[Rfam]
RNA sequence: GUCCAGACUGCGGCGGACCACACCCAAAAGCCUCCUAAGGCGAUUGCGACAGCUGGCCAUAUGCGGGUUACGAGGCUCGCAAGGCCGGCUGU
Numbered sequence: 001g002u003c004c005a006g007a008c009u010g011c012g013g014c015g016g017a018c019c020a021c022a023c024c025c026a027a028a029a030g031c032c033u034c035c036u037a038a039g040g041c042g043a044u045u046g047c048g049a050c051a052g053c054u055g056g057c058c059a060u061a062u063g064c065g066g067g068u069u070a071c072g073a074g075g076c077u078c079g080c081a082a083g084g085c086c087g088g089c090u091g092u
Base pairs, nucleotide, nucleotide: 001018002017003016004015024046026044031039049092050091051090052089053088054087055086056085057084058083062081063080064079065078066077067076068075

A member of the RNA family "Rhizobiales sRNA Atu_Ti1" from Rhizobium gallicum, 92 nucleotides long.
The literature on the family includes a 2012 paper in RNA Biol by Wilms et al., "Deep sequencing uncovers numerous small RNAs on all four replicons of the plant pathogen Agrobacterium tumefaciens".
It is annotated as a small RNA.
The base pairs follow the family's consensus structure, which was predicted with WAR.
Taxonomically the source falls in Rhizobium gallicum bv. gallicum (Bacteria, Pseudomonadati, Hyphomicrobiales, Rhizobium).